RNA sequence: GGGCCGUUAGCUCAGUUGGUAGAGCAGUGGACUCUUAAUCCAUUUGUCGUAGGUUCGACCCCUACACGGCCCA
Numbered sequence: 001g002g003g004c005c006g007u008u009a010g011c012u013c014a015g016u017u018g019g020u021a022g023a024g025c026a027g028u029g030g031a032c033u034c035u036u037a038a039u040c041c042a043u044u045u046g047u048c049g050u051a052g053g054u055u056c057g058a059c060c061c062c063u064a065c066a067c068g069g070c071c072c073a
Stems, first nucleotide, its partner, number of pairs: 001072007010025004027043005049065005
Dot-bracket structure: (((((((..((((........)))).(((((.......))))).....(((((.......)))))))))))).

Rfam assigns this 73-nucleotide RNA sequence from Thiospirillum jenense to the family "tRNA". The family's RNA type in Rfam is transfer RNA. Transfer RNA (tRNA) molecules are approximately 80 nucleotides in length. NCBI's taxonomy places the organism under Bacteria, Pseudomonadota, Gammaproteobacteria, Chromatiales, Thiospirillum. Pairs were carried over by alignment from the consensus structure, which is taken from published work. The match comes from Rfam's covariance-model search (72 bits). A reference for the family is Lowe and Eddy (1997), "tRNAscan-SE: a program for improved detection of transfer RNA genes in genomic sequence", Nucleic Acids Res.